The record is a 136-nucleotide RNA from Catagonus wagneri, which matches "Small nucleolar RNA U109" in Rfam. Lineage of the source: Eukaryota > Laurasiatheria > Suina > Tayassuidae > Catagonus. On this family, see Reddy et al., Biochem Biophys Res Commun 1981: "Pseudouridine residues in the 5'-terminus of uridine-rich nuclear RNA I (U1 RNA)". A search with the family's covariance model found it, with a score of 143 bits. The family's RNA type in Rfam is H/ACA-box small nucleolar RNA.
RNA sequence: CUGCAUGUGGAAAUGUCUGCUCCUUAUUCCUUUGGAAGCAGGACUUCUAUCCAUAACAUGCUACAUUAAAUAAGGAGUUCUCAGGGCUACCAACCUUACAGUAGAGGUUGAGUAGUAGUAUAUUUCUUCUACAUAA
Numbered sequence: 001c002u003g004c005a006u007g008u009g010g011a012a013a014u015g016u017c018u019g020c021u022c023c024u025u026a027u028u029c030c031u032u033u034g035g036a037a038g039c040a041g042g043a044c045u046u047c048u049a050u051c052c053a054u055a056a057c058a059u060g061c062u063a064c065a066u067u068a069a070a071u072a073a074g075g076a077g078u079u080c081u082c083a084g085g086g087c088u089a090c091c092a093a094c095c096u097u098a099c100a101g102u103a104g105a106g107g108u109u110g111a112g113u114a115g116u117a118g119u120a121u122a123u124u125u126c127u128u129c130u131a132c133a134u135a136a
Stems, first nucleotide, its partner, number of pairs: 003061006016042006023035001074129004086116002090112001091110007